[Rfam]
The record is a 54-nucleotide sequence, which matches "eL15-Euryarchaeota ribosomal protein leader" in Rfam. It is one of the family's seed sequences. Pairs were carried over by alignment from the consensus structure, which is taken from published work. On this family, see Eckert and Weinberg, BMC Microbiol 2020: "Discovery of 20 novel ribosomal leader candidates in bacteria and archaea".
RNA sequence: GCGGAUAACAGUCCGCUGGAAUGUAACCCUAAUCAAAAAGGGUUGAACCAUAAA
Numbered sequence: 001g002c003g004g005a006u007a008a009c010a011g012u013c014c015g016c017u018g019g020a021a022u023g024u025a026a027c028c029c030u031a032a033u034c035a036a037a038a039a040g041g042g043u044u045g046a047a048c049c050a051u052a053a054a
Stems, first nucleotide, its partner, number of pairs: 001016005017050003025044005